The family of this 271-nucleotide RNA sequence from Paenibacillus montanisoli is "BsrG". Rfam classes the family as a small RNA. A search with the family's covariance model found it, with a score of 65 bits. bsrE, bsrG and bsrH pair through intermolecular interactions with antisense sRNAs. They form type I toxin/antitoxin system that includes an mRNA encoding for a short, toxic peptide (bsrE, bsrG and bsrH) and an antitoxin that is comprised of an antisense RNA. bsrG encodes a 39-amino-acid toxin, and the 180 nucleotide antisense sRNA called SR4 acts as the antitoxin (they overlap by 123 nucleotides). SR4 interaction with the 3'UTR of bsrG RNA promotes bsrG degradation and inhibits its translation. BsrG interferes with cell envelope biosynthesis, causes membrane invaginations and delocalisation of the cell wall synthesis and initiates autolysis. bsrE RNA encodes 30 amino-acid toxin peptide. Rfam 15.1 lists 614 matches to the family in 343 species. For this family Rfam cites "BsrG/SR4 from Bacillus subtilis--the first temperature-dependent type I toxin-antitoxin system" (Jahn et al., Mol Microbiol, 2012).
RNA sequence: GCACAUAGAAUGGCUUGCAAGGGCGGUCGGCUACCUCUCCGUGAAGGGAGGGAUGCCCAUGGAGGUUAAGGACGCUUUGACGUUGAUGAUCAGUUUUGGCGCGCUGCUUAUUGCGCUGCUGACGCUGGUUGUUGCCAUCGUCGCAGUGUUUAACCAAAAGAAAUAGACCGCCCCUCUACCAGGAAAACGGUCUAUUUCCGAUCGAUAUUCCGAAGCCGGCCGCCUUUGAAGCGGUCUACUGUGCCGGAGGAGACGUGUUACAGCACGGCUC
Numbered sequence: 001g002c003a004c005a006u007a008g009a010a011u012g013g014c015u016u017g018c019a020a021g022g023g024c025g026g027u028c029g030g031c032u033a034c035c036u037c038u039c040c041g042u043g044a045a046g047g048g049a050g051g052g053a054u055g056c057c058c059a060u061g062g063a064g065g066u067u068a069a070g071g072a073c074g075c076u077u078u079g080a081c082g083u084u085g086a087u088g089a090u091c092a093g094u095u096u097u098g099g100c101g102c103g104c105u106g107c108u109u110a111u112u113g114c115g116c117u118g119c120u121g122a123c124g125c126u127g128g129u130u131g132u133u134g135c136c137a138u139c140g141u142c143g144c145a146g147u148g149u150u151u152a153a154c155c156a157a158a159a160g161a162a163a164u165a166g167a168c169c170g171c172c173c174c175u176c177u178a179c180c181a182g183g184a185a186a187a188c189g190g191u192c193u194a195u196u197u198c199c200g201a202u203c204g205a206u207a208u209u210c211c212g213a214a215g216c217c218g219g220c221c222g223c224c225u226u227u228g229a230a231g232c233g234g235u236c237u238a239c240u241g242u243g244c245c246g247g248a249g250g251a252g253a254c255g256u257g258u259u260a261c262a263g264c265a266c267g268g269c270u271c
Stems, first nucleotide, its partner, number of pairs: 001244005008236001010235001011218006019175001021173003026168003034052002037050004061123001064120003075088001099114003189198002220234004250271003254267005